[Rfam]
The record is an 81-nucleotide sequence from Laodelphax striatellus, which matches "mir-31 microRNA precursor family" in Rfam. Its Rfam clan is "mir-31 microRNA precursor family". NCBI's taxonomy places the organism under Eukaryota, Panarthropoda, Paraneoptera, Auchenorrhyncha, Laodelphax. Rfam 15.1 lists 1,181 matches to the family in 783 species. Rfam links the family to the GO terms RISC complex and gene silencing by miRNA. The match comes from Rfam's covariance-model search (51 bits).
RNA sequence: AAUAAAUGAAAAGACAAGAUGUUGUCAAACCACUGAUUUUAACAACAGUGGUUUGACAACAUCUUGUCUUUUCAUUUAUUA
Numbered sequence: 001a002a003u004a005a006a007u008g009a010a011a012a013g014a015c016a017a018g019a020u021g022u023u024g025u026c027a028a029a030c031c032a033c034u035g036a037u038u039u040u041a042a043c044a045a046c047a048g049u050g051g052u053u054u055g056a057c058a059a060c061a062u063c064u065u066g067u068c069u070u071u072u073c074a075u076u077u078a079u080u081a
Stems, first nucleotide, its partner, number of pairs: 005076017023058009